[Rfam]
Nucleotides: 066
Base pairs, nucleotide, nucleotide: 008058009057010056011055012054013053014052015051017050018049019048021046022045023044024043025042026041027040028039029038
Number, partner (000 for none) and nucleotide at each position: 001000a002000c003000u004000g005000u006000g007000u008058g009057a010056a011055a012054g013053a014052c015051a016000u017050g018049g019048g020000u021046a022045g023044u024043g025042a026041g027040a028039u029038g030000u031000c032000a033000u034000a035000c036000c037000u038029c039028a040027u041026c042025u043024c044023a045022c046021u047000a048019c049018c050017u051015u052014g053013u054012c055011u056010u057009u058008c059000a060000u061000g062000u063000a064000g065000u066000g
Shown here is a 66-nucleotide RNA from Apolygus lucorum, a member of the family "mir-71 microRNA precursor family". The organism belongs to Apolygus, within Eukaryota. For this family Rfam cites "Direct sequencing and expression analysis of a large number of miRNAs in Aedes aegypti and a multi-species survey of novel mosquito miRNAs" (Li et al., BMC Genomics, 2009). A search with the family's covariance model found it, with a score of 71 bits.